[Rfam]
Nucleotides: 060
Base pairs, nucleotide, nucleotide: 005056006055007054008053009052010051015045018047019046021042022041023040024039025038027036
Number, partner (000 for none) and nucleotide at each position: 001000u002000g003000c004000a005056g006055g007054a008053g009052u010051a011000g012000a013000a014000g015045c016000g017000u018047u019046c020000a021042g022041c023040g024039g025038c026000c027036c028000a029000c030000c031000u032000u033000c034000u035000g036027g037000c038025g039024c040023c041022g042021c043000c044000c045015g046019g047018a048000a049000a050000u051010u052009g053008c054007u055006c056005u057000g058000g059000c060000a